A member of the RNA family "Small nucleolar RNA SNORD86" from Orycteropus afer, 85 nucleotides long. Rfam links the family to the GO terms RNA processing and nucleolus. The family's RNA type in Rfam is C/D-box small nucleolar RNA. Rfam describes the family as follows. U86 belongs to the C/D family of snoRNAs. It is the human orthologue of Xenopus laevis U86 and has no identified RNA target. The base pairs follow the family's consensus structure, which was predicted with RNAalifold.
RNA sequence: UUUCAUGGUGAGGGCUGACCGUGGCUCCUGACCUGAACAGGCCUCUGCUAUGGGGGUGAUGGUCAGCCCUGCUCUCUCAGUGAUU
Numbered sequence: 001u002u003u004c005a006u007g008g009u010g011a012g013g014g015c016u017g018a019c020c021g022u023g024g025c026u027c028c029u030g031a032c033c034u035g036a037a038c039a040g041g042c043c044u045c046u047g048c049u050a051u052g053g054g055g056g057u058g059a060u061g062g063u064c065a066g067c068c069c070u071g072c073u074c075u076c077u078c079a080g081u082g083a084u085u
Base pairs, nucleotide, nucleotide: 003083004082005081006080010076011075012074018073020071021070023068024067025066026065027062028061029059031057032056033055034054038052039051040049041048042047
Dot-bracket structure: ..((((...(((.....(.((.(((((((.((((...(((((....))).)).)))).).))..)))).)).))))...))))..